[Rfam]
RNA sequence: GAGAAUAUCUAUGUACUUGUGUCCAUUAAGAUAGAAUCUCAAGUGCUUUUUCCAUCUGCCAAAGAAACAAUCCGGGUGCUGUGGCUGCCUCCACUUAUCAGGGGCAAUACAGCAGCCGGGGACACAGCC
Numbered sequence: 001g002a003g004a005a006u007a008u009c010u011a012u013g014u015a016c017u018u019g020u021g022u023c024c025a026u027u028a029a030g031a032u033a034g035a036a037u038c039u040c041a042a043g044u045g046c047u048u049u050u051u052c053c054a055u056c057u058g059c060c061a062a063a064g065a066a067a068c069a070a071u072c073c074g075g076g077u078g079c080u081g082u083g084g085c086u087g088c089c090u091c092c093a094c095u096u097a098u099c100a101g102g103g104g105c106a107a108u109a110c111a112g113c114a115g116c117c118g119g120g121g122a123c124a125c126a127g128c129c
Stems, first nucleotide, its partner, number of pairs: 002057003013046007071120005077114007086106005

About this RNA:
A member of the RNA family "Small nucleolar RNA SNORA77" from Rattus norvegicus, 129 nucleotides long. Gene Ontology terms of the family: nucleolus and RNA processing. Rfam 15.1 lists 843 matches to the family in 607 species. Lineage of the source: Eukaryota > Opisthokonta > Metazoa > Bilateria > Rattus.